[Rfam]
RNA: Bacterial large signal recognition particle RNA
RNA sequence: GCGUGCUAGAUGGGGAGCUGGCGGUGCCCUGUAACCCGUAAUCCGCCUUAACGGGAUUGAAUUCCUGCCUGAGGCAUCGAUUGUGCGAGGUCUGGUCUAUUCGAUCUGUGUUGAAGAUUGGGUCCUACGCAACGAGAGCUUUUGAACCGUGUCAGGUCCUGACGGAAGCAGCACUAAGGAAGAAUCCUCGUGUGCCGUAGGAGUGCCUGGUCUGAGCAGAUAGGAUAGUGCCCGCUCGGGCUUCCGGUGUCGAAGGCUGGUGCACGC
Numbered sequence: 001g002c003g004u005g006c007u008a009g010a011u012g013g014g015g016a017g018c019u020g021g022c023g024g025u026g027c028c029c030u031g032u033a034a035c036c037c038g039u040a041a042u043c044c045g046c047c048u049u050a051a052c053g054g055g056a057u058u059g060a061a062u063u064c065c066u067g068c069c070u071g072a073g074g075c076a077u078c079g080a081u082u083g084u085g086c087g088a089g090g091u092c093u094g095g096u097c098u099a100u101u102c103g104a105u106c107u108g109u110g111u112u113g114a115a116g117a118u119u120g121g122g123u124c125c126u127a128c129g130c131a132a133c134g135a136g137a138g139c140u141u142u143u144g145a146a147c148c149g150u151g152u153c154a155g156g157u158c159c160u161g162a163c164g165g166a167a168g169c170a171g172c173a174c175u176a177a178g179g180a181a182g183a184a185u186c187c188u189c190g191u192g193u194g195c196c197g198u199a200g201g202a203g204u205g206c207c208u209g210g211u212c213u214g215a216g217c218a219g220a221u222a223g224g225a226u227a228g229u230g231c232c233c234g235c236u237c238g239g240g241c242u243u244c245c246g247g248u249g250u251c252g253a254a255g256g257c258u259g260g261u262g263c264a265c266g267c
Base pairs, nucleotide, nucleotide: 001267002266003265004264005263006262009058010057011056012030013029014028015027017025018024019023035055036054037053038052039051064260065259067257068256069255070254073251074250075249076248077247083241084240086238087237088236089235094231097228098227099226100225101224104221105220107218108217109216115213116212117211118210119209120208121207122206123205124201125200126199127198128197129196130192131191133190134189135188136187139182140181141180142179143178149174150173151172152171157166158165159164
Dot-bracket structure: ((((((..(((((((.(((...))).))))....(((((...........)))))))).....((.((((..(((((.....((.((((....(..(((((..((.(((.....(((((((((((((((((.((((..(((((.....((((....(((....)))....))))...)))))....))))))...))))))...)))))))))..))).))..)))))..)...)))).)).....)))))..)))).)).))))))